[Rfam]
RNA sequence: GUAUAAGGGUUGGGAACCUUGUACCAAGCUACCUCUGCCAUUCAGUAUUUGGGAGUAGAAGUAGAUGUGUUUACAAACUCACACGUGUGGGGGCGGGGAUAGACUGUGCCAGCGGUCGUGUACCAGCACCUACGCAUACGUGUGGACUGCGAACCAGGAGAGCACCUAGGUCUGACAAGCUGUGAGAACACAGUAGUCGUCAGUGAGUCAGCUGGUAAGGAUCACCCACCUGGAUACUCACGUGGACGAGGGAGUUUCCCAGUCAGAAACCUACACCAGAGGAGGGGUCCUCUGGAGACAUGGAUGGUCUGAGUAACAGACUAUCUACUGGGGUGUGCUGCCUGACAGGGUCUCGGCUGAUAGCCUGGCUAGCAGUAUAAAAAUCAGUUGAAUUGGCAU
Numbered sequence: 001g002u003a004u005a006a007g008g009g010u011u012g013g014g015a016a017c018c019u020u021g022u023a024c025c026a027a028g029c030u031a032c033c034u035c036u037g038c039c040a041u042u043c044a045g046u047a048u049u050u051g052g053g054a055g056u057a058g059a060a061g062u063a064g065a066u067g068u069g070u071u072u073a074c075a076a077a078c079u080c081a082c083a084c085g086u087g088u089g090g091g092g093g094c095g096g097g098g099a100u101a102g103a104c105u106g107u108g109c110c111a112g113c114g115g116u117c118g119u120g121u122a123c124c125a126g127c128a129c130c131u132a133c134g135c136a137u138a139c140g141u142g143u144g145g146a147c148u149g150c151g152a153a154c155c156a157g158g159a160g161a162g163c164a165c166c167u168a169g170g171u172c173u174g175a176c177a178a179g180c181u182g183u184g185a186g187a188a189c190a191c192a193g194u195a196g197u198c199g200u201c202a203g204u205g206a207g208u209c210a211g212c213u214g215g216u217a218a219g220g221a222u223c224a225c226c227c228a229c230c231u232g233g234a235u236a237c238u239c240a241c242g243u244g245g246a247c248g249a250g251g252g253a254g255u256u257u258c259c260c261a262g263u264c265a266g267a268a269a270c271c272u273a274c275a276c277c278a279g280a281g282g283a284g285g286g287g288u289c290c291u292c293u294g295g296a297g298a299c300a301u302g303g304a305u306g307g308u309c310u311g312a313g314u315a316a317c318a319g320a321c322u323a324u325c326u327a328c329u330g331g332g333g334u335g336u337g338c339u340g341c342c343u344g345a346c347a348g349g350g351u352c353u354c355g356g357c358u359g360a361u362a363g364c365c366u367g368g369c370u371a372g373c374a375g376u377a378u379a380a381a382a383a384u385c386a387g388u389u390g391a392a393u394u395g396g397c398a399u
Stems, first nucleotide, its partner, number of pairs: 001024008080144006090130002093127002095124002100118001102116001104115003146376005152370001154368005159339002162336006168272004173265004179194006197249004203241005208233004213228003251259003276295008306322006340351004354390008